[Rfam]
RNA sequence: AUCUGGUGGUGGCACUCCCUUCGAUAACGGGCGGUGUGAGCGUUAGUGCGCAGAACAAACAAAAAAGGCCCGUAAUGUUACGGGCCUUUUUUU
Numbered sequence: 001a002u003c004u005g006g007u008g009g010u011g012g013c014a015c016u017c018c019c020u021u022c023g024a025u026a027a028c029g030g031g032c033g034g035u036g037u038g039a040g041c042g043u044u045a046g047u048g049c050g051c052a053g054a055a056c057a058a059a060c061a062a063a064a065a066a067g068g069c070c071c072g073u074a075a076u077g078u079u080a081c082g083g084g085c086c087u088u089u090u091u092u093u
Base pairs, nucleotide, nucleotide: 009043010042011041014037015036017034018033020031021030022029023028067086068085069084070083071082072081073080
Shown here is a 93-nucleotide RNA sequence from Marisediminitalea lipolytica, a member of the family "Tryptophan operon leader".
The family's RNA type in Rfam is cis-regulatory leader.
Rfam describes the family as follows. At least 6 amino acid operons are known to be regulated by attenuation.
Taxonomically the source falls in Marisediminitalea (Bacteria, Pseudomonadati, Alteromonadales, Alteromonadaceae).
Rfam links the family to the GO terms transcriptional attenuation by ribosome and tryptophan biosynthetic process.
The family's consensus secondary structure is taken from published work.